sok antitoxin (CssrC): a 153-nucleotide RNA from Jejuibacter calystegiae. By type it is an antitoxin RNA. Rfam describes the family as follows. Also identified in Shigella as CssrC.
RNA sequence: GGGUGCUUAAGGCUGUCUGCCUUAAGCAUUGGUGGAAGGCAGGCAGAGAAAAGCCCCAGGUGACGUUUAUUAUCAACCUGAGGCUAGUCCGCAUGCUCGACACAUGCAGGUUAGCUUCUUACAGACCACCCGGUCAAGGAGUAGCCGACGAUG
Numbered sequence: 001g002g003g004u005g006c007u008u009a010a011g012g013c014u015g016u017c018u019g020c021c022u023u024a025a026g027c028a029u030u031g032g033u034g035g036a037a038g039g040c041a042g043g044c045a046g047a048g049a050a051a052a053g054c055c056c057c058a059g060g061u062g063a064c065g066u067u068u069a070u071u072a073u074c075a076a077c078c079u080g081a082g083g084c085u086a087g088u089c090c091g092c093a094u095g096c097u098c099g100a101c102a103c104a105u106g107c108a109g110g111u112u113a114g115c116u117u118c119u120u121a122c123a124g125a126c127c128a129c130c131c132g133g134u135c136a137a138g139g140a141g142u143a144g145c146c147g148a149c150g151a152u153g
Stems, first nucleotide, its partner, number of pairs: 001057003005054004013046011026033002058079004062074002065071001080118005087111003091107005122144001124142001127139001